The record is an 84-nucleotide RNA from Actinoplanes nipponensis, which matches "ZMP/ZTP riboswitch aptamer (pfl RNA motif)" in Rfam. NCBI's taxonomy places the organism under Bacteria, Bacillati, Actinomycetota, Micromonosporales, Actinoplanes. A search with the family's covariance model found it, with a score of 40 bits.
[Rfam]
RNA sequence: ACGCGGACACGCGACUGGCGGCAUCGAGGAUGGGGACCACCAUCGGGGAGCUCGCCGUGGGGGCCGUCCGCCUGGGUGCCCACG
Numbered sequence: 001a002c003g004c005g006g007a008c009a010c011g012c013g014a015c016u017g018g019c020g021g022c023a024u025c026g027a028g029g030a031u032g033g034g035g036a037c038c039a040c041c042a043u044c045g046g047g048g049a050g051c052u053c054g055c056c057g058u059g060g061g062g063g064c065c066g067u068c069c070g071c072c073u074g075g076g077u078g079c080c081c082a083c084g
Stems, first nucleotide, its partner, number of pairs: 003055004011051002015047002017072005030043004061079001063077003